Shown here is an 80-nucleotide sequence from Medicago truncatula, a member of the family "MIR5269 microRNA precursor family".
Rfam links the family to the GO terms miRNA-mediated post-transcriptional gene silencing and RISC complex.
Taxonomically the source falls in Medicago (Eukaryota, Viridiplantae, Tracheophyta, Magnoliopsida).
Pairs were carried over by alignment from the consensus structure, which was predicted with RNAalifold.
RNA sequence: UUCGGUGAAACUCGUGUGGGUCUCACGCUUUAGAAAUGAAACCCACAUAAAGUGAUGAGACCCACAUGACUUUCACUCAA
Numbered sequence: 001u002u003c004g005g006u007g008a009a010a011c012u013c014g015u016g017u018g019g020g021u022c023u024c025a026c027g028c029u030u031u032a033g034a035a036a037u038g039a040a041a042c043c044c045a046c047a048u049a050a051a052g053u054g055a056u057g058a059g060a061c062c063c064a065c066a067u068g069a070c071u072u073u074c075a076c077u078c079a080a
Stems, first nucleotide, its partner, number of pairs: 001080002004077007012069007023058003026054007